RNA: MIR2629 microRNA precursor family
Organism: Medicago truncatula
RNA sequence: UACCGAAGUUUUUUUCGGCAGUUAACUGCAGCCGGUUACAAAUUCCUCGGCAGUUAACUGCCGAGGAAGCAA
Numbered sequence: 001u002a003c004c005g006a007a008g009u010u011u012u013u014u015u016c017g018g019c020a021g022u023u024a025a026c027u028g029c030a031g032c033c034g035g036u037u038a039c040a041a042a043u044u045c046c047u048c049g050g051c052a053g054u055u056a057a058c059u060g061c062c063g064a065g066g067a068a069g070c071a072a
Stems, first nucleotide, its partner, number of pairs: 012068002015065001016063014